ASpks TB sRNA: a 72-nucleotide sequence from Streptomyces oceani. On this family, see Arnvig and Young, Mol Microbiol 2009: "Identification of small RNAs in Mycobacterium tuberculosis". Taxonomically the source falls in Streptomyces (Bacteria, Bacillati, Actinomycetota, Kitasatosporales). It is annotated as an antisense RNA. A search with the family's covariance model found it, with a score of 79 bits.
[Rfam]
RNA sequence: CUUCACCGAACCCAACCGCAACGGUUCCUCGGCGCGGCCCUGGCCGUAGGUGGCGAGCAGCGCCUGCGCCUC
Numbered sequence: 001c002u003u004c005a006c007c008g009a010a011c012c013c014a015a016c017c018g019c020a021a022c023g024g025u026u027c028c029u030c031g032g033c034g035c036g037g038c039c040c041u042g043g044c045c046g047u048a049g050g051u052g053g054c055g056a057g058c059a060g061c062g063c064c065u066g067c068g069c070c071u072c
Stems, first nucleotide, its partner, number of pairs: 014026004032067002035062002040057002044053003